[Rfam]
RNA sequence: AAAUGCAUUACAGGGCGAGAUCUCUAUUGGCAAGAACGCAUUACUUGACCUUUGCAUCUCUUUAUGCAUUGGUUUGUCAAGUUCUCUGCCAAAGGAGAUUUAACCGGUAAUUCUCCU
Dot-bracket structure: ....(.(((.(.((..(((..((((..(((((.(.(..............................................).).)))))..)))).)))..)).).))).)....